[Rfam]
RNA sequence: GAGUUCGUUGUCUAAACAGUAAUCCGAUCAAGUACGAGAGGAACCGUCGGUUCAGAUAAUUGGUAAAUGCAGUUAGCUGAAAAGCUAGUGCUGCGAAGCUACCAUCUGUAGGAUUAUGGCUGAACGCCUCUAAGUCAGAAUCCAUGCUGGAAUAGACGAUAAUCACCUUUCCUGAUGUACAAAGAAUAACUAUAGGUACACUUCUGUGUAUCCAACAUCAUAAAAUUGCAACGCACUCCGCUUAUCCUCAAGUAUGAUGGGCGGGGAGUAUGCUGAAACACAAUUUCAAAUAUUGGGAGAGAUAGAUCCUUUGUAGACGACUUAAAUAUAAAACCAAGUGUUGUAAGCAUGAGAGUAGUCUUUGCACUACGAUCUGCUGAGAUUUAGCUUGUGUUUUACGAUUUGU
Numbered sequence: 001g002a003g004u005u006c007g008u009u010g011u012c013u014a015a016a017c018a019g020u021a022a023u024c025c026g027a028u029c030a031a032g033u034a035c036g037a038g039a040g041g042a043a044c045c046g047u048c049g050g051u052u053c054a055g056a057u058a059a060u061u062g063g064u065a066a067a068u069g070c071a072g073u074u075a076g077c078u079g080a081a082a083a084g085c086u087a088g089u090g091c092u093g094c095g096a097a098g099c100u101a102c103c104a105u106c107u108g109u110a111g112g113a114u115u116a117u118g119g120c121u122g123a124a125c126g127c128c129u130c131u132a133a134g135u136c137a138g139a140a141u142c143c144a145u146g147c148u149g150g151a152a153u154a155g156a157c158g159a160u161a162a163u164c165a166c167c168u169u170u171c172c173u174g175a176u177g178u179a180c181a182a183a184g185a186a187u188a189a190c191u192a193u194a195g196g197u198a199c200a201c202u203u204c205u206g207u208g209u210a211u212c213c214a215a216c217a218u219c220a221u222a223a224a225a226u227u228g229c230a231a232c233g234c235a236c237u238c239c240g241c242u243u244a245u246c247c248u249c250a251a252g253u254a255u256g257a258u259g260g261g262c263g264g265g266g267a268g269u270a271u272g273c274u275g276a277a278a279c280a281c282a283a284u285u286u287c288a289a290a291u292a293u294u295g296g297g298a299g300a301g302a303u304a305g306a307u308c309c310u311u312u313g314u315a316g317a318c319g320a321c322u323u324a325a326a327u328a329u330a331a332a333a334c335c336a337a338g339u340g341u342u343g344u345a346a347g348c349a350u351g352a353g354a355g356u357a358g359u360c361u362u363u364g365c366a367c368u369a370c371g372a373u374c375u376g377c378u379g380a381g382a383u384u385u386a387g388c389u390u391g392u393g394u395u396u397u398a399c400g401a402u403u404u405g406u
Stems, first nucleotide, its partner, number of pairs: 007160008017149004022052001024050005053108005061101003068095005073088006111143002117137005168300011304404005310324001313321001330397005336390003340383002347377003352373001355370005
Rfam assigns this 406-nucleotide part of an RNA from Achlya hypogyna to the family "Eukaryotic large subunit ribosomal RNA".
The match comes from Rfam's covariance-model search (3214 bits).